[Rfam]
RNA sequence: UGUCUCAAGUUAAAGGCCAUAGGAGAAGUGCUCACAGUGCAGCCUGUUGGAUUUCCGUGAAUCUACAAAUUCUGCU
Numbered sequence: 001u002g003u004c005u006c007a008a009g010u011u012a013a014a015g016g017c018c019a020u021a022g023g024a025g026a027a028g029u030g031c032u033c034a035c036a037g038u039g040c041a042g043c044c045u046g047u048u049g050g051a052u053u054u055c056c057g058u059g060a061a062u063c064u065a066c067a068a069a070u071u072c073u074g075c076u
Stems, first nucleotide, its partner, number of pairs: 015044003021076002024073004028040003048065007
RNA: Mammalian CPEB3 ribozyme
Organism: Alligator mississippiensis